[Rfam]
The family of this 84-nucleotide RNA from Flavobacterium psychrophilum is "Flavo-1 RNA". NCBI's taxonomy places the organism under Bacteria, Bacteroidota, Flavobacteriales, Flavobacteriaceae, Flavobacterium psychrophilum.

RNA sequence: CCCUAGCCCAGAUAGUAGUGGAAAUCCUUUUGUGUUCGCAAAAAAAGCGAACACAAAAGAUUGAAGCGAAUAGCUGGAAAUAGC
Numbered sequence: 001c002c003c004u005a006g007c008c009c010a011g012a013u014a015g016u017a018g019u020g021g022a023a024a025u026c027c028u029u030u031u032g033u034g035u036u037c038g039c040a041a042a043a044a045a046a047g048c049g050a051a052c053a054c055a056a057a058a059g060a061u062u063g064a065a066g067c068g069a070a071u072a073g074c075u076g077g078a079a080a081u082a083g084c
Base pairs, nucleotide, nucleotide: 009076010075011074013072014071018067019066023062024061025060026059028057029056031055032054033053035051036050037049038048039047